[Rfam]
RNA sequence: AUUGGAGCGGCGAUGAGCAACUUUUGUGGACUAGAGUUUCCGAUAUUACCUCGUUAGUAUUUGACGACCAAACCCUUGGCUGUCUGAGCUCCUAG
Dot-bracket structure: .(.(((((............................(.((...(((((......)))))...)).).....................))))).).
RNA: Small nucleolar RNA Z157/R69/R10